Rfam assigns this 74-nucleotide sequence from Ameiurus melas to the family "Small nucleolar RNA SNORD2".
RNA sequence: GUAUGAAAUGAUGGUACACCAUCUUUCGGGACUGACUAUAUAAUGUAGAGAUUCUUUGUUUUUACUGAUCAUAC
Numbered sequence: 001g002u003a004u005g006a007a008a009u010g011a012u013g014g015u016a017c018a019c020c021a022u023c024u025u026u027c028g029g030g031a032c033u034g035a036c037u038a039u040a041u042a043a044u045g046u047a048g049a050g051a052u053u054c055u056u057u058g059u060u061u062u063u064a065c066u067g068a069u070c071a072u073a074c
Stems, first nucleotide, its partner, number of pairs: 001074006